Source information: A member of the RNA family "ALIL pseudoknot" from Pseudorhodoferax sp. Leaf267, 117 nucleotides long. On this family, see Mazauric et al., J Biol Chem 2008: "Apical loop-internal loop RNA pseudoknots: a new type of stimulator of -1 translational frameshifting in bacteria". By type it is a cis-regulatory element. Pairs were carried over by alignment from the consensus structure, which is taken from published work.

RNA sequence: CGCGUUUUUCGCCCAGGCGGAGCUCGACCGCCGACUCAAGUCGUAAAUGACUUCAUCGACGAGCACCGCGAUACCUUCGGGGUCGAGCCGAUCUGCAAAGUUUUGCAGGUCGCCCCU
Numbered sequence: 001c002g003c004g005u006u007u008u009u010c011g012c013c014c015a016g017g018c019g020g021a022g023c024u025c026g027a028c029c030g031c032c033g034a035c036u037c038a039a040g041u042c043g044u045a046a047a048u049g050a051c052u053u054c055a056u057c058g059a060c061g062a063g064c065a066c067c068g069c070g071a072u073a074c075c076u077u078c079g080g081g082g083u084c085g086a087g088c089c090g091a092u093c094u095g096c097a098a099a100g101u102u103u104u105g106c107a108g109g110u111c112g113c114c115c116c117u
Base pairs, nucleotide, nucleotide: 016032017031018030019029020028079116080115081114082113089112090111092109093108094107095106096105097104098103